[Rfam]
RNA sequence: GCGGCCAUAGCUCAACUGGUUAGAGCGCCGGACUGUGACUCCGGAGGUUGCCGGUUCGAUCCCGGUUGGCCGCC
Numbered sequence: 001g002c003g004g005c006c007a008u009a010g011c012u013c014a015a016c017u018g019g020u021u022a023g024a025g026c027g028c029c030g031g032a033c034u035g036u037g038a039c040u041c042c043g044g045a046g047g048u049u050g051c052c053g054g055u056u057c058g059a060u061c062c063c064g065g066u067u068g069g070c071c072g073c074c
Stems, first nucleotide, its partner, number of pairs: 001073007010026004028044005050066005
Dot-bracket structure: (((((((..((((.........)))).(((((.......))))).....(((((.......)))))))))))).

Shown here is a 74-nucleotide RNA sequence from Myxococcus xanthus, a member of the family "tRNA". Taxonomically the source falls in Myxococcus xanthus (Bacteria, Pseudomonadati, Myxococcales, Myxococcus). The match comes from Rfam's covariance-model search (70 bits).